[Rfam]
RNA sequence: GGCCUCCUCGUGCUUACCAUAGGCUGUGUUCUUACACUGACUGUAUAGAAAGAGGAGGUGGAGUAAACCUAUCCAUAUACACCUCAGCUCAAGUUCAGGCCCCAUGCCUGGUCUGUACUGUGAAUGGGGGAACACAG
Numbered sequence: 001g002g003c004c005u006c007c008u009c010g011u012g013c014u015u016a017c018c019a020u021a022g023g024c025u026g027u028g029u030u031c032u033u034a035c036a037c038u039g040a041c042u043g044u045a046u047a048g049a050a051a052g053a054g055g056a057g058g059u060g061g062a063g064u065a066a067a068c069c070u071a072u073c074c075a076u077a078u079a080c081a082c083c084u085c086a087g088c089u090c091a092a093g094u095u096c097a098g099g100c101c102c103c104a105u106g107c108c109u110g111g112u113c114u115g116u117a118c119u120g121u122g123a124a125u126g127g128g129g130g131a132a133c134a135c136a137g
Stems, first nucleotide, its partner, number of pairs: 002059007020043003026037004072129001073127004085115003089111003093107002
Dot-bracket structure: .(((((((...........(((...((((....))))...))).........)))))))............(((((........(((.(((.((...........)).))).)))........)))).)........
RNA: Small nucleolar RNA SNORA51
Organism: Aotus nancymaae